[Rfam]
RNA sequence: ACCAGGGCUGCACCCUGGGCUAUUUUAUUGCGCCCUUUCAGGGCU
Numbered sequence: 001a002c003c004a005g006g007g008c009u010g011c012a013c014c015c016u017g018g019g020c021u022a023u024u025u026u027a028u029u030g031c032g033c034c035c036u037u038u039c040a041g042g043g044c045u
Stems, first nucleotide, its partner, number of pairs: 002018006032044005
Overview: The record is a 45-nucleotide RNA sequence from Adhaeribacter aerolatus, which matches "Acido-Lenti-1 RNA" in Rfam. Rfam classes the family as a small RNA. It scores 44 bits against the family's covariance model.